[Rfam]
RNA sequence: GCCCCGUGAAAGACAUGGGUAGUGAGAUGUCCCGUACAUCACAAUUCUCACUACCUUGUCUUUCAUGCGGAU
Numbered sequence: 001g002c003c004c005c006g007u008g009a010a011a012g013a014c015a016u017g018g019g020u021a022g023u024g025a026g027a028u029g030u031c032c033c034g035u036a037c038a039u040c041a042c043a044a045u046u047c048u049c050a051c052u053a054c055c056u057u058g059u060c061u062u063u064c065a066u067g068c069g070g071a072u
Stems, first nucleotide, its partner, number of pairs: 008064008017056003021052007

Annotation:
The record is a 72-nucleotide RNA from Diatraea saccharalis, which matches "mir-71 microRNA precursor family" in Rfam. The family's consensus secondary structure was predicted with RNAalifold. Rfam links the family to the GO terms RISC complex and miRNA-mediated post-transcriptional gene silencing. A search with the family's covariance model found it, with a score of 66 bits.